Shown here is an 88-nucleotide RNA sequence from Artemisia annua, a member of the family "Small nucleolar RNA snoR14". The family's RNA type in Rfam is C/D-box small nucleolar RNA. NCBI's taxonomy places the organism under Eukaryota, Streptophyta, Tracheophyta, Anthemideae, Artemisia. On this family, see Brown et al., RNA 2001: "Multiple snoRNA gene clusters from Arabidopsis". Pairs were carried over by alignment from the consensus structure.

[Rfam]
RNA sequence: GCGAGGUGACGAUAAAAUUCAGUGGUCUCUCAAUCCAUUGAUAAAUUUUAAUUGAAGUUAAUAUUGAAUCCCGACAGGUUUCAAUCGC
Numbered sequence: 001g002c003g004a005g006g007u008g009a010c011g012a013u014a015a016a017a018u019u020c021a022g023u024g025g026u027c028u029c030u031c032a033a034u035c036c037a038u039u040g041a042u043a044a045a046u047u048u049u050a051a052u053u054g055a056a057g058u059u060a061a062u063a064u065u066g067a068a069u070c071c072c073g074a075c076a077g078g079u080u081u082c083a084a085u086c087g088c
Base pairs, nucleotide, nucleotide: 001088002087003086004085